[Rfam]
RNA sequence: CGAUGAGGUAGAGGUUGCAUGAUUCAUCAGUAAAGCAUGAGAGGCUCUCCGGAGCUUAUGACUGUGCUUGAAAGGGAAUGAUGCCGAAGCCCUCAGGCGCCGGAACGCCUGCAGGCUGGGACUGUAUCGAACAGGUACAGGACUGUCACGGUUUUUCCGUGGAGCGCUAUAUGGGAU
Numbered sequence: 001c002g003a004u005g006a007g008g009u010a011g012a013g014g015u016u017g018c019a020u021g022a023u024u025c026a027u028c029a030g031u032a033a034a035g036c037a038u039g040a041g042a043g044g045c046u047c048u049c050c051g052g053a054g055c056u057u058a059u060g061a062c063u064g065u066g067c068u069u070g071a072a073a074g075g076g077a078a079u080g081a082u083g084c085c086g087a088a089g090c091c092c093u094c095a096g097g098c099g100c101c102g103g104a105a106c107g108c109c110u111g112c113a114g115g116c117u118g119g120g121a122c123u124g125u126a127u128c129g130a131a132c133a134g135g136u137a138c139a140g141g142a143c144u145g146u147c148a149c150g151g152u153u154u155u156u157c158c159g160u161g162g163a164g165c166g167c168u169a170u171a172u173g174g175g176a177u
Stems, first nucleotide, its partner, number of pairs: 006172001008170004017084004022079004033069007088117004094111006118144002122140007146162006

A member of the RNA family "Lysine riboswitch aptamer" from Fictibacillus aquaticus, 177 nucleotides long. A search with the family's covariance model found it, with a score of 116 bits. Rfam's curators write: Riboswitches are metabolite binding domains within certain messenger RNAs that serve as precision sensors for their corresponding targets. Pairs were carried over by alignment from the consensus structure, which is taken from published work.